[Rfam]
RNA sequence: GCUCUGGUCGGUAACCAGAGCAUGAGACAAGAGGAG
Numbered sequence: 001g002c003u004c005u006g007g008u009c010g011g012u013a014a015c016c017a018g019a020g021c022a023u024g025a026g027a028c029a030a031g032a033g034g035a036g
Base pairs, nucleotide, nucleotide: 001021002020003019004018005017006016007015008014